Group II catalytic intron D1-D4-6: a 269-nucleotide sequence from Novipirellula aureliae. The pairing is the family consensus, mapped onto this sequence.
[Rfam]
RNA sequence: GGAGAUCCCGCCUGGGUAAGUGCUAGCCCCACGCCCAGUAUCGAGUGUUGCAGCGACUGUAUAAGACCAGAGGUCGAAGUCAGUCGUUGAAGCGUACACAGAAAGGUAGUGAGGAUGAAGCGAUCGUAGGUGGCCCUGCGACGUUGAAUGGAAUUAGCCCCGAAAUUUGGUAACUGUCGGAUCCUGCCCAAGGUUUGUUCAUGCCUGAAGGCAAUAUCGGUUGCAGCGUUAACGGCAAGCUGUCAUCGGAGGCCCGGGGUCGGCGGCCC
Numbered sequence: 001g002g003a004g005a006u007c008c009c010g011c012c013u014g015g016g017u018a019a020g021u022g023c024u025a026g027c028c029c030c031a032c033g034c035c036c037a038g039u040a041u042c043g044a045g046u047g048u049u050g051c052a053g054c055g056a057c058u059g060u061a062u063a064a065g066a067c068c069a070g071a072g073g074u075c076g077a078a079g080u081c082a083g084u085c086g087u088u089g090a091a092g093c094g095u096a097c098a099c100a101g102a103a104a105g106g107u108a109g110u111g112a113g114g115a116u117g118a119a120g121c122g123a124u125c126g127u128a129g130g131u132g133g134c135c136c137u138g139c140g141a142c143g144u145u146g147a148a149u150g151g152a153a154u155u156a157g158c159c160c161c162g163a164a165a166u167u168u169g170g171u172a173a174c175u176g177u178c179g180g181a182u183c184c185u186g187c188c189c190a191a192g193g194u195u196u197g198u199u200c201a202u203g204c205c206u207g208a209a210g211g212c213a214a215u216a217u218c219g220g221u222u223g224c225a226g227c228g229u230u231a232a233c234g235g236c237a238a239g240c241u242g243u244c245a246u247c248g249g250a251g252g253c254c255c256g257g258g259g260u261c262g263g264c265g266g267c268c269c
Base pairs, nucleotide, nucleotide: 012038013037014036015035016034020032021031022030024238026236027235041102042101045099046098047097048096049094050093051089052088053087054086055085056084057083058082059081154263157260158259159258160257161256162255179254180253183252184251185250186212187211188210191206192205193204194203217249218248219247220246221245223243224242225241226240227239